[Rfam]
Nucleotides: 114
Stems, first nucleotide, its partner, number of pairs: 001109001003107006013027004029096003032092002036090003
Number, partner (000 for none) and nucleotide at each position: 001109c002000a003107a004106c005105u006104c007103u008102g009000g010000a011000g012000a013027g014026g015025g016024g017000c018000g019000u020000c021000a022000a023000a024016c025015c026014c027013c028000c029096a030095c031094c032092g033091a034000a035000g036090g037089g038088g039000c040000a041000a042000a043000a044000u045000u046000c047000g048000c049000g050000u051000c052000c053000g054000c055000u056000a057000c058000c059000g060000u061000g062000c063000g064000u065000g066000a067000u068000g069000g070000g071000u072000a073000g074000c075000u076000u077000g078000c079000g080000a081000a082000c083000c084000a085000a086000a087000a088038c089037u090036c091033u092032c093000a094031g095030g096029u097000u098000u099000u100000a101000a102008c103007a104006g105005a106004g107003u108000g109001g110000g111000g112000a113000g114000g